[Rfam]
Exoribonuclease-resistant RNA (xrRNA) plant-infecting virus (class 3): a 45-nucleotide sequence. Pairs were carried over by alignment from the consensus structure, which is taken from published work. For this family Rfam cites "The pseudoknot structure of a viral RNA reveals a conserved mechanism for programmed exoribonuclease resistance" (Gezelle et al., bioRxiv [Preprint], 2024). The sequence is in the family's curated seed alignment. Exoribonuclease-resistant RNA (xrRNA) plant-infecting virus (class 3) is a ncRNA that was reported in Plant viruses.
RNA sequence: CCUCAGCCAGCAUAAGGUUGCAAGACUGGAGAGAAAGCCCUUGGC
Numbered sequence: 001c002c003u004c005a006g007c008c009a010g011c012a013u014a015a016g017g018u019u020g021c022a023a024g025a026c027u028g029g030a031g032a033g034a035a036a037g038c039c040c041u042u043g044g045c
Stems, first nucleotide, its partner, number of pairs: 002033003007029002010027001011024001013043005